[Rfam]
RNA sequence: UGAUGAAGUCGGUAGGCGAAGCUACCACAUGGACAUGGGUUGCUGCCGCAAAGGAAUGGAGACACUCCGCGCUGGUUAGCAGUCCCCGUCGAAAUCAAGGCGAGGACUAACGCAAUACCAAAGGCCAUGCGAAGCCGAAACUUGAACGACAUCGCGU
Number, nucleotide and partner (000 for none) at each position: 001u000002g000003a000004u000005g153006a152007a000008g150009u149010c148011g147012g000013u098014a000015g142016g141017c000018g000019a000020a000021g135022c134023u000024a000025c000026c131027a000028c129029a128030u127031g126032g125033a000034c000035a000036u000037g000038g000039g116040u115041u114042g113043c112044u000045g000046c074047c000048g072049c071050a000051a000052a000053g000054g000055a066056a000057u064058g063059g000060a000061g000062a000063c058064a057065c000066u055067c000068c000069g000070c000071g049072c048073u000074g046075g000076u000077u000078a000079g000080c000081a000082g107083u106084c105085c104086c000087c000088g101089u100090c099091g000092a000093a000094a000095u000096c000097a000098a013099g090100g089101c088102g000103a000104g085105g084106a083107c082108u000109a000110a000111c000112g043113c042114a041115a040116u039117a000118c000119c000120a000121a000122a000123g000124g000125c032126c031127a030128u029129g028130c000131g026132a000133a000134g022135c021136c000137g000138a000139a000140a000141c016142u015143u000144g000145a000146a000147c011148g010149a009150c008151a000152u006153c005154g000155c000156g000157u000

Rfam assigns this 157-nucleotide RNA from Bombiscardovia coagulans to the family "M-box riboswitch aptamer (ykoK leader)". The pairing is the family consensus, mapped onto this sequence. Rfam describes the family as follows. M-box riboswitch, also know as ykoK leader is described as a metaloregulatory RNA that sense divalent metals and function as a genetic control element of genes related to divalent metal transport in bacteria. It was first reported upstream of the B.subtilis ykoK gene and genes with related functions in other bacteria. Rfam links the family to the GO terms regulation of gene expression and response to magnesium ion.